The record is a 130-nucleotide sequence from Phyllostomus discolor, which matches "Small nucleolar RNA SNORA11" in Rfam. Rfam classes the family as an H/ACA-box small nucleolar RNA. Pairs were carried over by alignment from the consensus structure, which was predicted with RNAalifold. Rfam links the family to the GO terms nucleolus and RNA processing. Lineage of the source: Eukaryota > Opisthokonta > Eumetazoa > Chordata > Phyllostomus. Rfam describes the family as follows. U107 (SNORA11) is a member of the H/ACA class of snoRNAs that guide the sites of modification of uridines to pseudouridines. This snoRNA was identified by RT-PCR from blood cells and its expression confirmed by Northern blot analysis. There is no predicted target for this guide snRNA. The match comes from Rfam's covariance-model search (56 bits).

RNA sequence: AAGAUAUCCUGGACAGGGAGCCUGAUGCAGUGGCCCCAUGGUUUAGAACACACCCAACAGGAAUCCAGGGGUCAUUGUGACAAGGGGCAUAAGCCUGUGGCCUUACUGUGGACAAACAUACCCUACAUGU
Numbered sequence: 001a002a003g004a005u006a007u008c009c010u011g012g013a014c015a016g017g018g019a020g021c022c023u024g025a026u027g028c029a030g031u032g033g034c035c036c037c038a039u040g041g042u043u044u045a046g047a048a049c050a051c052a053c054c055c056a057a058c059a060g061g062a063a064u065c066c067a068g069g070g071g072u073c074a075u076u077g078u079g080a081c082a083a084g085g086g087g088c089a090u091a092a093g094c095c096u097g098u099g100g101c102c103u104u105a106c107u108g109u110g111g112a113c114a115a116a117c118a119u120a121c122c123c124u125a126c127a128u129g130u
Base pairs, nucleotide, nucleotide: 003054005052007050011044012043013042014041016039018037020034021033022032069123070122071121072120076114077113078112081110082109084103085102086101088099089098090097091096